[Rfam]
RNA: Glycine riboswitch aptamer
Organism: Natribacillus halophilus
Nucleotides: 106
Stems, first nucleotide, its partner, number of pairs: 006101008020035004037086003040082002044080003050074008
Number, partner (000 for none) and nucleotide at each position: 001000a002000u003000g004000a005000a006101c007100a008099u009098u010097g011096u012095g013094g014000g015000a016000g017000a018000g019000a020035c021034u022033g023032a024000c025000a026000u027000a028000c029000a030000c031000g032023u033022c034021g035020g036000c037086a038085c039084c040082g041081a042000a043000g044080g045079g046078g047000c048000a049000a050074c051073a052072u053071u054070c055069a056068c057067a058000u059000a060000a061000a062000a063000a064000c065000c066000u067057u068056g069055u070054g071053a072052a073051u074050g075000a076000a077000u078046c079045u080044c081041u082040c083000a084039g085038g086037u087000a088000a089000a090000a091000u092000g093000a094013c095012u096011g097010c098009a099008a100007u101006g102000g103000g104000a105000c106000g